[Rfam]
RNA sequence: ACGCCCCGGACGCCGAGUCCGCUUCUCGCGGAGCCGGGGACCCAGGUUCUCUUGGGGUGAAUCGGCGCGUCGUUUCCCACGGACGCGUCGUAGGGCGGCUUCCAGGCCCGAACCCGUCAGCUAACCCGGUAGGCGCCUUUGGAAGAAGGA
Numbered sequence: 001a002c003g004c005c006c007c008g009g010a011c012g013c014c015g016a017g018u019c020c021g022c023u024u025c026u027c028g029c030g031g032a033g034c035c036g037g038g039g040a041c042c043c044a045g046g047u048u049c050u051c052u053u054g055g056g057g058u059g060a061a062u063c064g065g066c067g068c069g070u071c072g073u074u075u076c077c078c079a080c081g082g083a084c085g086c087g088u089c090g091u092a093g094g095g096c097g098g099c100u101u102c103c104a105g106g107c108c109c110g111a112a113c114c115c116g117u118c119a120g121c122u123a124a125c126c127c128g129g130u131a132g133g134c135g136c137c138u139u140u141g142g143a144a145g146a147a148g149g150a
Base pairs, nucleotide, nucleotide: 011135012134013133014132018032019031020030033130034129035128036127037126038125043054044053055115056114057113063090064089065088066087067086068085069084070083071082093109094108095107096106
Notes: Rfam assigns this 150-nucleotide sequence from Sphaerisporangium rubeum to the family "c-di-AMP riboswitch aptamer (ydaO/yuaA leader)".